Plastid-rps12 3UTR RNA: a 98-nucleotide sequence from Cuscuta pentagona. Plastid rpl20 is a non-coding RNA (ncRNA) recognised in plastids. It was found in the three prime untranslated region (3UTR) of rps12 gene, its 3UTR location sugest a role in transcript maduration. Rfam's curators put it in the seed alignment. The family's consensus secondary structure was predicted with LocARNA. Rfam classes the family as a cis-regulatory element. Rfam 15.1 lists 1,710 matches to the family in 1,426 species. The literature on the family includes a 2023 paper in Plant Commun by Richter et al., "Retrograde signaling in plants: A critical review focusing on the GUN pathway and beyond".
[Rfam]
RNA sequence: GGUUUCCAGUGGUGCAAAUCCACUGACCUGAAUUUAAGUUGAAAAAAAAAAAAUUUCCCGGUGGUACCAAAAGGUUAUUCAUUAAGCGGGGCAAAUAC
Numbered sequence: 001g002g003u004u005u006c007c008a009g010u011g012g013u014g015c016a017a018a019u020c021c022a023c024u025g026a027c028c029u030g031a032a033u034u035u036a037a038g039u040u041g042a043a044a045a046a047a048a049a050a051a052a053a054u055u056u057c058c059c060g061g062u063g064g065u066a067c068c069a070a071a072a073g074g075u076u077a078u079u080c081a082u083u084a085a086g087c088g089g090g091g092c093a094a095a096u097a098c
Stems, first nucleotide, its partner, number of pairs: 009023004056091004060082001063079004068074001